[Rfam]
RNA sequence: GCGAGGCACACGAACCCCAGAGAGUUCGGGCCUCUCGGCGUUUCGGGGAGGAAACGCCCGCUUGGAUCGAGUGAUCGAGGAAAAAGCUGAGCCCGUUGCGAUUAUCCCCCGCAACGGGCUCAGUCCUUUCUGGG
Dot-bracket structure: (.(((((....((((.(....).))))..))))).)((((((((......))))))))...(((((((((....)))).......(((((((((((((((.........)))))))))))))))....))))).
Caulobacter sRNA CrfA: a 134-nucleotide RNA from Caulobacter mirabilis.
By type it is a small RNA.
It scores 102 bits against the family's covariance model.
The family has 2 seed sequences and 41 matches in Rfam 15.1.
For this family Rfam cites "Small non-coding RNAs in Caulobacter crescentus" (Landt et al., Mol Microbiol, 2008).